Shown here is a 123-nucleotide RNA sequence from Orthohepacivirus hominis, a member of the family "Hepatitis C virus J7880 RNA". It is annotated as a cis-regulatory element. The sequence is in the family's curated seed alignment. The literature on the family includes a 2015 paper in Proc Natl Acad Sci U S A by Mauger et al., "Functionally conserved architecture of hepatitis C virus RNA genomes".
RNA sequence: AUUAAGGCACAAGCCUCCACAGUGAAGGCGCGGUUACUCACGGUUGAGGAAGCCUGCAACCUGACGCCCCCCCACUCGGCCAGAUCAAAAUUUGGUUACGGGGCGAAGGAGGUUCGGAGCCAU
Numbered sequence: 001a002u003u004a005a006g007g008c009a010c011a012a013g014c015c016u017c018c019a020c021a022g023u024g025a026a027g028g029c030g031c032g033g034u035u036a037c038u039c040a041c042g043g044u045u046g047a048g049g050a051a052g053c054c055u056g057c058a059a060c061c062u063g064a065c066g067c068c069c070c071c072c073c074a075c076u077c078g079g080c081c082a083g084a085u086c087a088a089a090a091u092u093u094g095g096u097u098a099c100g101g102g103g104c105g106a107a108g109g110a111g112g113u114u115c116g117g118a119g120c121c122a123u
Stems, first nucleotide, its partner, number of pairs: 006120001010116001012114007022065002025062001028057002032053001035050001037048003068103004074097001076095002078092002